Notes: This 127-nucleotide RNA from Xenorhabdus cabanillasii belongs to the Rfam family "Enterobacteria greA leader". Rfam classes the family as a cis-regulatory leader. Lineage of the source: Bacteria > Pseudomonadati > Gammaproteobacteria > Enterobacterales > Xenorhabdus. A search with the family's covariance model found it, with a score of 61 bits. Gene Ontology term of the family: regulation of gene expression.
RNA sequence: AUAAUACUAAGAUGCAAUUCAGGAAAAAGUAAACGAUGAUCCAUCAUCAACUCUACGUUAAAAUGAUAGAUUAGCAGUUUAAAUAUGUAUGUGAACUAUCAGAGUAUUCUGUAGUUUAUACUCUUUU
Number, nucleotide and partner (000 for none) at each position: 001a040002u039003a000004a037005u036006a000007c000008u000009a000010a000011g034012a000013u000014g030015c029016a000017a000018u000019u000020c000021a000022g000023g000024a000025a000026a000027a000028a000029g015030u014031a000032a000033a000034c011035g000036a005037u004038g000039a002040u001041c000042c000043a000044u000045c000046a000047u000048c000049a000050a000051c000052u000053c000054u000055a000056c000057g075058u074059u073060a072061a000062a000063a000064u000065g000066a000067u000068a000069g000070a000071u000072u060073a059074g058075c057076a000077g000078u000079u000080u000081a000082a000083a000084u000085a000086u000087g000088u000089a000090u120091g119092u118093g117094a116095a115096c114097u113098a112099u000100c111101a110102g000103a000104g000105u000106a000107u000108u000109c000110u101111g100112u098113a097114g096115u095116u094117u093118a092119u091120a090121c000122u000123c000124u000125u000126u000127u000